[Rfam]
RNA: sraA
Organism: Escherichia coli
RNA sequence: AUGUACGUCAGUAUAUGGGGAUGUUUCCCCCACAUUCAACGCCGAGAAUAGAGGAAAAAUUAAAGGGGAGAUAAAAUCCCCCCUUUUUGGUUAA
Numbered sequence: 001a002u003g004u005a006c007g008u009c010a011g012u013a014u015a016u017g018g019g020g021a022u023g024u025u026u027c028c029c030c031c032a033c034a035u036u037c038a039a040c041g042c043c044g045a046g047a048a049u050a051g052a053g054g055a056a057a058a059a060u061u062a063a064a065g066g067g068g069a070g071a072u073a074a075a076a077u078c079c080c081c082c083c084u085u086u087u088u089g090g091u092u093a094a
Stems, first nucleotide, its partner, number of pairs: 008038001010036003016032005062086007070078003